Shown here is a 356-nucleotide part of an RNA from Salinigranum rubrum, a member of the family "Archaeal large subunit ribosomal RNA". Pairs were carried over by alignment from the consensus structure, which is taken from published work.
[Rfam]
RNA sequence: CACAGUAGCAGCGAGAGUCGGGUGCGAACCCCGACGGCCUGAAGAGCAAGGGUUCCUCGGCACUGCCAAUCAGCCGAGGGUUAGUCGGUCCUAAGACUGACCGUAACUCGAAUCAGUCAAAUGGGAAUCUGGUUAAUAUUCCAGAACCGUGUGCACUCAAAGUCGACGCUUUGGGGACCACCGAACCGGGCUUUCGCCCGGUCGAACUGAGGAAACUCGUGGAAGCCGUAAUGGCACGAAGCGAGCGAAGCUCAGGACAGCGCAAGUCGGUGUUACCCAGAGCCCGUGAAAAGACGAGCACAUCGUCCGUACCGAGAUCCGACACAGGUGCUCUGGCAGAGCAAGCCAAGGCCUGU
Dot-bracket structure: ................((((((.......))))))((((....((((..((...((((((...((.....)).))))))......(((.((...((((((.((.....))..))))))....))...(((((........)))))..(((((((.......(((...((((((((...(((((.(((((........)))))....((((.....(((((....(((.....))).....)))))......)))).....(....).)))))...)))))))).........)))..))))).)).)))..)).....((......)).))))((((.......)))).))))...